[Rfam]
RNA sequence: ACCGCCAUGGAUGGCGGUGGUUUCAAGCAGCAGCGAUGUUUUGUGAUCAGCACAAAACUCGCCUUCAACUGAUGUGCACGGAUGUACAUCAGUUGAAGAUG
Numbered sequence: 001a002c003c004g005c006c007a008u009g010g011a012u013g014g015c016g017g018u019g020g021u022u023u024c025a026a027g028c029a030g031c032a033g034c035g036a037u038g039u040u041u042u043g044u045g046a047u048c049a050g051c052a053c054a055a056a057a058c059u060c061g062c063c064u065u066c067a068a069c070u071g072a073u074g075u076g077c078a079c080g081g082a083u084g085u086a087c088a089u090c091a092g093u094u095g096a097a098g099a100u101g
Stems, first nucleotide, its partner, number of pairs: 001018006034061003038058008064097014